This 403-nucleotide sequence from Shewanella denitrificans belongs to the Rfam family "cspA thermoregulator". Gene Ontology terms of the family: regulation of translation and response to temperature stimulus. It is annotated as an RNA thermoregulator. On this family, see Giuliodori et al., Mol Cell 2010: "The cspA mRNA is a thermosensor that modulates translation of the cold-shock protein CspA".
[Rfam]
RNA sequence: UCAGGCUUGAAAGUUGGGCUUAUAUUUAUGUGUUUCAAUACGACCAGUUUCGUCCUGUGAACAUAAGUAAUACCGGCAUUUUCCAGCUCUACGCCGUUAAGGCUUUAAUUAUUUUUUUACAGGAUUCAUAUUAUGUCUCAAGUUACUGGUGUUGUUAAGUGGUUCAACUCUGAUAAAGGUUUUGGAUUUAUCGAGCAAGAGUCUGGCCCAGAUGUAUUCGUACAUUUCCGCGCUAUCAACUCUGACGGUUUCAAGACUCUUGACGAAGGUCAAAAAGUGUCUUUCACUGUGACUCAAGGUCAAAAAGGUCCUCAAGCUGAGAACGUUUCAGUAGUUGGCUAAUAAUACCUAGCCCAGCGCUAAGUAUUGAAAAUAGGCUGCAACUUAGGUUGUGGCUUUUUUU
Numbered sequence: 001u002c003a004g005g006c007u008u009g010a011a012a013g014u015u016g017g018g019c020u021u022a023u024a025u026u027u028a029u030g031u032g033u034u035u036c037a038a039u040a041c042g043a044c045c046a047g048u049u050u051c052g053u054c055c056u057g058u059g060a061a062c063a064u065a066a067g068u069a070a071u072a073c074c075g076g077c078a079u080u081u082u083c084c085a086g087c088u089c090u091a092c093g094c095c096g097u098u099a100a101g102g103c104u105u106u107a108a109u110u111a112u113u114u115u116u117u118u119a120c121a122g123g124a125u126u127c128a129u130a131u132u133a134u135g136u137c138u139c140a141a142g143u144u145a146c147u148g149g150u151g152u153u154g155u156u157a158a159g160u161g162g163u164u165c166a167a168c169u170c171u172g173a174u175a176a177a178g179g180u181u182u183u184g185g186a187u188u189u190a191u192c193g194a195g196c197a198a199g200a201g202u203c204u205g206g207c208c209c210a211g212a213u214g215u216a217u218u219c220g221u222a223c224a225u226u227u228c229c230g231c232g233c234u235a236u237c238a239a240c241u242c243u244g245a246c247g248g249u250u251u252c253a254a255g256a257c258u259c260u261u262g263a264c265g266a267a268g269g270u271c272a273a274a275a276a277g278u279g280u281c282u283u284u285c286a287c288u289g290u291g292a293c294u295c296a297a298g299g300u301c302a303a304a305a306a307g308g309u310c311c312u313c314a315a316g317c318u319g320a321g322a323a324c325g326u327u328u329c330a331g332u333a334g335u336u337g338g339c340u341a342a343u344a345a346u347a348c349c350u351a352g353c354c355c356a357g358c359g360c361u362a363a364g365u366a367u368u369g370a371a372a373a374u375a376g377g378c379u380g381c382a383a384c385u386u387a388g389g390u391u392g393u394g395g396c397u398u399u400u401u402u403u
Stems, first nucleotide, its partner, number of pairs: 001194002009189002013187003019178003026173003032168003038164001040163002047134002055122007063082001065080002093103003137149002202291001204289003211219002222280006232271001233269002236263004244257001246255001297312003313338001315336002317331005346366003350362004371400002375398010

The family has 15 seed sequences and 2,094 matches in Rfam 15.1.